[Rfam]
RNA sequence: UGGAGGACUGAGAAGGUUGAACAGCUUGUGUGGUGCUGUUAUAACUGGUUAUAACCUCCAAGAGUAACACACAAACCACACUGUUAUAUCUCCCUGUUCUAAGCAGAGUAGAUAGAUGUGUUUGUGGCACAUUUU
Numbered sequence: 001u002g003g004a005g006g007a008c009u010g011a012g013a014a015g016g017u018u019g020a021a022c023a024g025c026u027u028g029u030g031u032g033g034u035g036c037u038g039u040u041a042u043a044a045c046u047g048g049u050u051a052u053a054a055c056c057u058c059c060a061a062g063a064g065u066a067a068c069a070c071a072c073a074a075a076c077c078a079c080a081c082u083g084u085u086a087u088a089u090c091u092c093c094c095u096g097u098u099c100u101a102a103g104c105a106g107a108g109u110a111g112a113u114a115g116a117u118g119u120g121u122u123u124g125u126g127g128c129a130c131a132u133u134u135u
Base pairs, nucleotide, nucleotide: 002059003058004057005056006055015046016045017044018043020040021039022038023037024036025035079126080125081124087120088119094115095114096113097112098111100110101109

About this RNA: Rfam assigns this 135-nucleotide RNA from Acanthochromis polyacanthus to the family "Small nucleolar RNA SNORA47". Rfam classes the family as an H/ACA-box small nucleolar RNA. Lineage of the source: Eukaryota > Chordata > Vertebrata > Acanthomorphata > Acanthochromis. The family has 20 seed sequences and 733 matches in Rfam 15.1. The base pairs follow the family's consensus structure, which was predicted with WAR.